[Rfam]
RNA sequence: AAUUUCCUUCGGGGUCGGGUGAAAUUCCCAAUCGACGGUGAUGAAUAAAACUAUUCUAAGCCCGUGAGCUCAAAUGAGCAGGAUUUGGUGCGAAUCCAAAGCCGACAGUAUAGUCUGGAUGGGAGAAGGAGUGU
Numbered sequence: 001a002a003u004u005u006c007c008u009u010c011g012g013g014g015u016c017g018g019g020u021g022a023a024a025u026u027c028c029c030a031a032u033c034g035a036c037g038g039u040g041a042u043g044a045a046u047a048a049a050a051c052u053a054u055u056c057u058a059a060g061c062c063c064g065u066g067a068g069c070u071c072a073a074a075u076g077a078g079c080a081g082g083a084u085u086u087g088g089u090g091c092g093a094a095u096c097c098a099a100a101g102c103c104g105a106c107a108g109u110a111u112a113g114u115c116u117g118g119a120u121g122g123g124a125g126a127a128g129g130a131g132u133g134u
Stems, first nucleotide, its partner, number of pairs: 004131007017029003031114002033104002035065004060102002070078001084100005106117003